[Rfam]
RNA: Glycine riboswitch aptamer
Organism: Amycolatopsis sp. SID8362
RNA sequence: CGAGCCGAGGCGGGAGAGCCCUCACGAACGUGGUGGGGCACCGAAGGAGCAAACUCCCCGGAAUCUCUCAGGUAACCGCUACCGCUUCGCGCGA
Numbered sequence: 001c002g003a004g005c006c007g008a009g010g011c012g013g014g015a016g017a018g019c020c021c022u023c024a025c026g027a028a029c030g031u032g033g034u035g036g037g038g039c040a041c042c043g044a045a046g047g048a049g050c051a052a053a054c055u056c057c058c059c060g061g062a063a064u065c066u067c068u069c070a071g072g073u074a075a076c077c078g079c080u081a082c083c084g085c086u087u088c089g090c091g092c093g094a
Stems, first nucleotide, its partner, number of pairs: 006089008020038006040073003043069002047067003054060001